RNA sequence: GCCCUGUGGUUACCAGACCUGGCAUUUCCGUGCAGUACUCUGGUUUUAUUAAAAGGGCAGAAAGAAAAGCUGUGAAAUUAUGCAUGGGGCAUGUACUGUAUUUGUCCCCAUAGCCCGGUCACAGUAACAUUU
Number, nucleotide and partner (000 for none) at each position: 001g058002c057003c056004c055005u000006g000007u000008g000009g000010u000011u000012a044013c043014c042015a041016g040017a039018c000019c035020u034021g033022g000023c000024a000025u000026u000027u000028c000029c000030g000031u000032g000033c021034a020035g019036u000037a000038c000039u017040c016041u015042g014043g013044u012045u000046u000047u000048a000049u000050u000051a000052a000053a000054a000055g004056g003057g002058c001059a000060g000061a000062a000063a000064g000065a000066a000067a000068a000069g000070c124071u000072g122073u121074g120075a119076a000077a000078u000079u000080a000081u000082g114083c113084a111085u110086g109087g108088g106089g105090c104091a103092u000093g101094u100095a000096c000097u000098g000099u000100a094101u093102u000103u091104g090105u089106c088107c000108c087109c086110a085111u084112a000113g083114c082115c000116c000117g000118g000119u075120c074121a073122c072123a000124g070125u000126a000127a000128c000129a000130u000131u000132u000